[Rfam]
RNA sequence: AACCAGUGCCAUCGCAUGUCAAGACUCCUUCCGGUGCACAGCACUGCUCUCUCGAUGGAAGUUUGUCUGUUACAGCUUUGGCAGAUUGACUCCGCCCGCCGCCUUGGCCUCUUUCUGAGGUUCGAGGUUAGACUUGCUUUUGUUCUGAAAGCGCUGUCGUACAGGGCCAGGUGUGUUUUGUUUUGAGUUGAGCUCUGCUCUCACCAUUAGGGUGAUCUCAUAGCAGUUCUCUUAGUUACAUUUCACACAUUU
Numbered sequence: 001a002a003c004c005a006g007u008g009c010c011a012u013c014g015c016a017u018g019u020c021a022a023g024a025c026u027c028c029u030u031c032c033g034g035u036g037c038a039c040a041g042c043a044c045u046g047c048u049c050u051c052u053c054g055a056u057g058g059a060a061g062u063u064u065g066u067c068u069g070u071u072a073c074a075g076c077u078u079u080g081g082c083a084g085a086u087u088g089a090c091u092c093c094g095c096c097c098g099c100c101g102c103c104u105u106g107g108c109c110u111c112u113u114u115c116u117g118a119g120g121u122u123c124g125a126g127g128u129u130a131g132a133c134u135u136g137c138u139u140u141u142g143u144u145c146u147g148a149a150a151g152c153g154c155u156g157u158c159g160u161a162c163a164g165g166g167c168c169a170g171g172u173g174u175g176u177u178u179u180g181u182u183u184u185g186a187g188u189u190g191a192g193c194u195c196u197g198c199u200c201u202c203a204c205c206a207u208u209a210g211g212g213u214g215a216u217c218u219c220a221u222a223g224c225a226g227u228u229c230u231c232u233u234a235g236u237u238a239c240a241u242u243u244c245a246c247a248c249a250u251u252u
Stems, first nucleotide, its partner, number of pairs: 003081004022068004027061001029059003033045005092171002094167004101128007108120004131158003136152007173246003179240003190231003196225004202214004

Background: This 252-nucleotide sequence from Coccidioides immitis belongs to the Rfam family "Small nucleolar RNA snR191". Gene Ontology terms of the family: nucleolus and RNA processing. A search with the family's covariance model found it, with a score of 59 bits.